[Rfam]
RNA sequence: GCUGUGGCAAAGGUCCAACCUCACAUGUCCUGUGGGCUGUCGAGGGCUGUGUGAGCUCGGACCUAUCCCACACGC
Numbered sequence: 001g002c003u004g005u006g007g008c009a010a011a012g013g014u015c016c017a018a019c020c021u022c023a024c025a026u027g028u029c030c031u032g033u034g035g036g037c038u039g040u041c042g043a044g045g046g047c048u049g050u051g052u053g054a055g056c057u058c059g060g061a062c063c064u065a066u067c068c069c070a071c072a073c074g075c
Stems, first nucleotide, its partner, number of pairs: 001075002003072005009066001011064005018057001020055001022053006029046003